[Rfam]
RNA sequence: UCCCAGUGAGGAAGAAUUCCCAAAGAUAGGAAGUGCCGUAUGACACUUUAAUCAGCGGCGCAACG
Number, nucleotide and partner (000 for none) at each position: 001u000002c000003c000004c000005a000006g000007u000008g000009a000010g000011g000012a000013a000014g059015a000016a000017u000018u000019c000020c000021c000022a000023a000024a000025g000026a000027u000028a000029g000030g049031a048032a047033g046034u045035g044036c000037c000038g000039u000040a000041u000042g000043a000044c035045a034046c033047u032048u031049u030050a000051a000052u000053c000054a000055g000056c000057g000058g000059c014060g000061c000062a000063a000064c000065g000
RNA: Small nucleolar RNA U49
Organism: Gossypium anomalum